Rfam assigns this 114-nucleotide sequence from Laodelphax striatellus to the family "Group II catalytic intron D1-D4-2". A reference for the family is Bonen and Vogel (2001), "The ins and outs of group II introns", Trends Genet. The source organism's lineage runs through Eukaryota, Ecdysozoa, Delphacoidea, Criomorphinae and Laodelphax. Rfam describes the family as follows. Group II introns are found in rRNA, tRNA and mRNA of organelles in fungi, plants and protists, and also in mRNA in bacteria. Pairs were carried over by alignment from the consensus structure.
[Rfam]
RNA sequence: GAGGGUGGGCCCCUCGAAGUCGGUUUGCAAGAAUAGGCUUCAAACAGCCAUAAGCUGCUGUGGUAAAGAGCUAUGGUAGUGAGCGUUAUGGAAAAGGUGCAAUUAUGCAUCAUG
Numbered sequence: 001g002a003g004g005g006u007g008g009g010c011c012c013c014u015c016g017a018a019g020u021c022g023g024u025u026u027g028c029a030a031g032a033a034u035a036g037g038c039u040u041c042a043a044a045c046a047g048c049c050a051u052a053a054g055c056u057g058c059u060g061u062g063g064u065a066a067a068g069a070g071c072u073a074u075g076g077u078a079g080u081g082a083g084c085g086u087u088a089u090g091g092a093a094a095a096g097g098u099g100c101a102a103u104u105a106u107g108c109a110u111c112a113u114g
Base pairs, nucleotide, nucleotide: 001015002014003013004012005011016041017040018039019038020037021036023034024033025032026031045114046113048091049090050089051088052087053086054080055079057077058076059075061073062072063071064070096111097110098109099108100107101106